[Rfam]
RNA sequence: UUUGCCGUGAGGCAUGCAGUGAAGUAAGCCAGACUGCGGUGUCUGUACUGACGAACAGAAACCAUAUACUGAGGCCAUGAGGUCGGAUGAGGUGCCACAUCACGCCGAAGUCCUAACCUUCCGAAAGGAAGGAAGCAUCGAAAUGGUAGAUAUGGCAGGAAUAGGCACAAGGAUAUUCAC
Numbered sequence: 001u002u003u004g005c006c007g008u009g010a011g012g013c014a015u016g017c018a019g020u021g022a023a024g025u026a027a028g029c030c031a032g033a034c035u036g037c038g039g040u041g042u043c044u045g046u047a048c049u050g051a052c053g054a055a056c057a058g059a060a061a062c063c064a065u066a067u068a069c070u071g072a073g074g075c076c077a078u079g080a081g082g083u084c085g086g087a088u089g090a091g092g093u094g095c096c097a098c099a100u101c102a103c104g105c106c107g108a109a110g111u112c113c114u115a116a117c118c119u120u121c122c123g124a125a126a127g128g129a130a131g132g133a134a135g136c137a138u139c140g141a142a143a144u145g146g147u148a149g150a151u152a153u154g155g156c157a158g159g160a161a162u163a164g165g166c167a168c169a170a171g172g173a174u175a176u177u178c179a180c
Base pairs, nucleotide, nucleotide: 001016003014004013005012006011028180031177032176035173040167041166042165043164044163045162046160048158049157050156062155063154064153065152066151067150074147075146076145078140079139080138082136083135085113086112087111088110091106092105093104094103
Rfam assigns this 180-nucleotide RNA sequence from Cyclobacterium lianum to the family "Group II catalytic intron D1-D4-3". The match comes from Rfam's covariance-model search (84 bits). The organism belongs to Cyclobacterium, within Bacteria.